The record is a 94-nucleotide RNA from Anaerotignum lactatifermentans, which matches "ZMP/ZTP riboswitch aptamer (pfl RNA motif)" in Rfam. The family's consensus secondary structure is taken from published work. For this family Rfam cites "Recognition of the bacterial alarmone ZMP through long-distance association of two RNA subdomains" (Jones and Ferre-D'Amare, Nat Struct Mol Biol, 2015).
RNA sequence: GCGGUUUUCUGUAACUGACGGAUUGGUGGGAGACCACAGGGGAGCAGAAAAUCGGAAUUUUUUCUAAGCAGUGCAGUACUGCCUGGCGGAUAUU
Numbered sequence: 001g002c003g004g005u006u007u008u009c010u011g012u013a014a015c016u017g018a019c020g021g022a023u024u025g026g027u028g029g030g031a032g033a034c035c036a037c038a039g040g041g042g043a044g045c046a047g048a049a050a051a052u053c054g055g056a057a058u059u060u061u062u063u064c065u066a067a068g069c070a071g072u073g074c075a076g077u078a079c080u081g082c083c084u085g086g087c088g089g090a091u092a093u094u
Stems, first nucleotide, its partner, number of pairs: 003053010015041002017083001019081001026037004079089002
Dot-bracket structure: ..((((((((((..(([.[......((((....))))..))..)))))))))).........................((].]....)).....